[Rfam]
RNA: DUF3800-VIII RNA
RNA sequence: UGACCCCUGUCCGCCGUGAAGCUCCAAGUUCCACUUGGAGUACGCUCACAGCAUAGCGGCGACGGGGGUCA
Numbered sequence: 001u002g003a004c005c006c007c008u009g010u011c012c013g014c015c016g017u018g019a020a021g022c023u024c025c026a027a028g029u030u031c032c033a034c035u036u037g038g039a040g041u042a043c044g045c046u047c048a049c050a051g052c053a054u055a056g057c058g059g060c061g062a063c064g065g066g067g068g069u070c071a
Stems, first nucleotide, its partner, number of pairs: 001071010012061006021041009